[Rfam]
This 92-nucleotide sequence from Micromonospora radicis belongs to the Rfam family "Selenocysteine transfer RNA". A search with the family's covariance model found it, with a score of 75 bits.
RNA sequence: GGAGGCGUUCAGGUGGCUGGUGCCCCUCCCGGUCUUCAAAACCGGUGUGGUCCGGGAUCCGGGCCAGGCGGGUUCGAUUCCCGUCCGUCUCC
Numbered sequence: 001g002g003a004g005g006c007g008u009u010c011a012g013g014u015g016g017c018u019g020g021u022g023c024c025c026c027u028c029c030c031g032g033u034c035u036u037c038a039a040a041a042c043c044g045g046u047g048u049g050g051u052c053c054g055g056g057a058u059c060c061g062g063g064c065c066a067g068g069c070g071g072g073u074u075c076g077a078u079u080c081c082c083g084u085c086c087g088u089c090u091c092c
Base pairs, nucleotide, nucleotide: 001092002091003090004089005088006087007086012027013026015024016023017022029045030044031043032042033041048066049065050064051063052062069083070082071081072080
Source information: The base pairs follow the family's consensus structure, which is taken from published work.